[Rfam]
RNA: U12 minor spliceosomal RNA
Organism: Panthera tigris
RNA sequence: AUGCCUUAAACUUAUGAGUAAGGAAAAUAAUGAUUUGGGGGACACCCGAGUGCUCACUGCUAAUUUGAGACAAAUAUUUGAGCUGGUAGUUUGCCCUAAGGUGACCUGCCCACUUUGCAGGAAGCCAGGUAGUGGUGAUCUGCCCA
Numbered sequence: 001a002u003g004c005c006u007u008a009a010a011c012u013u014a015u016g017a018g019u020a021a022g023g024a025a026a027a028u029a030a031u032g033a034u035u036u037g038g039g040g041g042a043c044a045c046c047c048g049a050g051u052g053c054u055c056a057c058u059g060c061u062a063a064u065u066u067g068a069g070a071c072a073a074a075u076a077u078u079u080g081a082g083c084u085g086g087u088a089g090u091u092u093g094c095c096c097u098a099a100g101g102u103g104a105c106c107u108g109c110c111c112a113c114u115u116u117g118c119a120g121g122a123a124g125c126c127a128g129g130u131a132g133u134g135g136u137g138a139u140c141u142g143c144c145c146a
Stems, first nucleotide, its partner, number of pairs: 004023005033051007053069004085144005091138004097129001100126003105121005